[Rfam]
RNA sequence: ACAUUGCUAACUGGUGGUGGAGCAGCUUUUUGCGGCCUUGACCAGUCAUGUCUUCAGACAAAGUCCAAGCCGCCCGAAUUUUCAGGCGGCUUUUUU
Dot-bracket structure: ..........(((((.(.((.((...(....)..))))).)))))...((((....))))......((((((((.((....)).))))))))....
Numbered sequence: 001a002c003a004u005u006g007c008u009a010a011c012u013g014g015u016g017g018u019g020g021a022g023c024a025g026c027u028u029u030u031u032g033c034g035g036c037c038u039u040g041a042c043c044a045g046u047c048a049u050g051u052c053u054u055c056a057g058a059c060a061a062a063g064u065c066c067a068a069g070c071c072g073c074c075c076g077a078a079u080u081u082u083c084a085g086g087c088g089g090c091u092u093u094u095u096u
Stems, first nucleotide, its partner, number of pairs: 011045005017039001019038002022036002027032001049060004067092008076083002
A member of the RNA family "RcsR1 sRNA" from Agrobacterium fabrum, 96 nucleotides long. Taxonomically the source falls in Agrobacterium fabrum (Bacteria, Pseudomonadota, Hyphomicrobiales, Agrobacterium). RcsR1 (rhizobial cold and salinity stress riboregulator 1) trans-acting sRNA, formerly known as SmelC587, is a stress-related riboregulator, conserved in Sinorhizobium, Rhizobium and Agrobacterium. By type it is a small RNA. For this family Rfam cites "The stress-related, rhizobial small RNA RcsR1 destabilizes the autoinducer synthase encoding mRNA sinI in Sinorhizobium meliloti" (Baumgardt et al., RNA Biol, 2015).